U1 spliceosomal RNA: a 164-nucleotide RNA sequence from Pararge aegeria. For this family Rfam cites "The uRNA database" (Zwieb, Nucleic Acids Res, 1997). U1 is a small nuclear RNA (snRNA) component of the spliceosome (involved in pre-mRNA splicing). The family's RNA type in Rfam is spliceosomal small nuclear RNA. The base pairs follow the family's consensus structure, which is taken from published work. Its Rfam clan is "U1 clan".

RNA sequence: AUACUAACCUUGCGUAGGGUGUACCGUGAUCACGAAGGCGGUUGCCCCGGGCCGGCGCCAGUCAUUGCACUGCGACUGGACAACGCUUGCUUGUGACUAUCUCUCACAGAGAUACGUCGUGCGUGUAAUUUUUGGUAGUUGGACUUGCGUUCUGCGCGGUCCAC
Numbered sequence: 001a002u003a004c005u006a007a008c009c010u011u012g013c014g015u016a017g018g019g020u021g022u023a024c025c026g027u028g029a030u031c032a033c034g035a036a037g038g039c040g041g042u043u044g045c046c047c048c049g050g051g052c053c054g055g056c057g058c059c060a061g062u063c064a065u066u067g068c069a070c071u072g073c074g075a076c077u078g079g080a081c082a083a084c085g086c087u088u089g090c091u092u093g094u095g096a097c098u099a100u101c102u103c104u105c106a107c108a109g110a111g112a113u114a115c116g117u118c119g120u121g122c123g124u125g126u127a128a129u130u131u132u133u134g135g136u137a138g139u140u141g142g143a144c145u146u147g148c149g150u151u152c153u154g155c156g157c158g159g160u161c162c163a164c
Stems, first nucleotide, its partner, number of pairs: 012124004017047005023042005049092004054088001056085002059078005094119004098114002101111002140163005146158004